[Rfam]
Nucleotides: 096
Base pairs, nucleotide, nucleotide: 012037013036017032018031019030020029021028022027040090041089042088043087046085047081048080049079054075055074
Number, partner (000 for none) and nucleotide at each position: 001000u002000u003000c004000c005000g006000a007000u008000a009000a010000a011000g012037g013036c014000a015000a016000a017032c018031c019030a020029g021028u022027g023000g024000a025000a026000a027022c028021a029020u030019u031018g032017g033000g034000a035000c036013g037012c038000a039000a040090a041089g042088c043087c044000g045000c046085g047081g048080c049079c050000u051000a052000a053000g054075g055074c056000a057000g058000c059000u060000g061000a062000u063000c064000g065000c066000u067000u068000c069000a070000g071000c072000a073000c074055g075054c076000u077000a078000u079049g080048g081047u082000a083000g084000a085046c086000a087043g088042g089041u090040u091000a092000c093000c094000g095000a096000u